[Rfam]
RNA sequence: UACUCAGUGAUUAGAGCCAAUUACAUUGGCAAUAUACGACACGGACCUUAUUUGGUUGAAAAGUUCGAUAGGAGAGUU
Numbered sequence: 001u002a003c004u005c006a007g008u009g010a011u012u013a014g015a016g017c018c019a020a021u022u023a024c025a026u027u028g029g030c031a032a033u034a035u036a037c038g039a040c041a042c043g044g045a046c047c048u049u050a051u052u053u054g055g056u057u058g059a060a061a062a063g064u065u066c067g068a069u070a071g072g073a074g075a076g077u078u
Stems, first nucleotide, its partner, number of pairs: 002077004
A member of the RNA family "Small nucleolar RNA U54" from Brachypodium distachyon, 78 nucleotides long.
Its family is annotated with RNA processing and nucleolus in the Gene Ontology.
By type it is a C/D-box small nucleolar RNA.
The literature on the family includes a 2003 paper in Nucleic Acids Res by Chen et al., "The high diversity of snoRNAs in plants: identification and comparative study of 120 snoRNA genes from Oryza sativa".
Taxonomically the source falls in Brachypodium (Eukaryota, Liliopsida, Petrosaviidae, Poaceae).
Rfam's curators write: U54 is a C/D box small nucleolar RNA, which acts as a methylation guide for 18S ribosomal RNA in plants.
The match comes from Rfam's covariance-model search (46 bits).